[Rfam]
RNA sequence: AUUUCUUUUAAUAUAUCAGGAAGUCAAAUUGGUAGUAAAGAAAGAAGCAAGAAGUUGAAAGCCAUCAUUGCCUAUAAUCAAAAUCCAUAAGCCCAUACCAUGCUUCUUUCUUCACUACCAAUUCGACUUCCUGAUAUGUUAAAAGAAAC
Numbered sequence: 001a002u003u004u005c006u007u008u009u010a011a012u013a014u015a016u017c018a019g020g021a022a023g024u025c026a027a028a029u030u031g032g033u034a035g036u037a038a039a040g041a042a043a044g045a046a047g048c049a050a051g052a053a054g055u056u057g058a059a060a061g062c063c064a065u066c067a068u069u070g071c072c073u074a075u076a077a078u079c080a081a082a083a084u085c086c087a088u089a090a091g092c093c094c095a096u097a098c099c100a101u102g103c104u105u106c107u108u109u110c111u112u113c114a115c116u117a118c119c120a121a122u123u124c125g126a127c128u129u130c131c132u133g134a135u136a137u138g139u140u141a142a143a144a145g146a147a148a149c
Stems, first nucleotide, its partner, number of pairs: 004146015020130006027123005033117004038112009048102002051099001056095002
Overview: The record is a 149-nucleotide sequence from Gossypium laxum, which matches "MIR8643 microRNA precursor family" in Rfam. It scores 148 bits against the family's covariance model. Pairs were carried over by alignment from the consensus structure, which was predicted with RNAalifold. Rfam 15.1 lists 522 matches to the family in 18 species.